A member of the RNA family "drum RNA", 114 nucleotides long.

[Rfam]
RNA sequence: UGGUGUUGAAGCAAUUAGUUGUUUCGGUACGCAGUUAAUUGUGGAACCUGAUCUUGGGUUAUGCGACAACCUCAAACCGAAUAGGUUCUUAUGAACCGAACGAAAACGCUUUGC
Numbered sequence: 001u002g003g004u005g006u007u008g009a010a011g012c013a014a015u016u017a018g019u020u021g022u023u024u025c026g027g028u029a030c031g032c033a034g035u036u037a038a039u040u041g042u043g044g045a046a047c048c049u050g051a052u053c054u055u056g057g058g059u060u061a062u063g064c065g066a067c068a069a070c071c072u073c074a075a076a077c078c079g080a081a082u083a084g085g086u087u088c089u090u091a092u093g094a095a096c097c098g099a100a101c102g103a104a105a106a107c108g109c110u111u112u113g114c
Base pairs, nucleotide, nucleotide: 002048003047004046011042012041013040014039015038016037017036018035019034020033021032022031024080025079026078027077063109064108065107084097085096086095087094
By type it is a small RNA. The base pairs follow the family's consensus structure, which is taken from published work. From the family's description: Firmicutes, Bacteroidetes (1 example), Proteobacteria (2 examples), Spirochaetes (2 examples).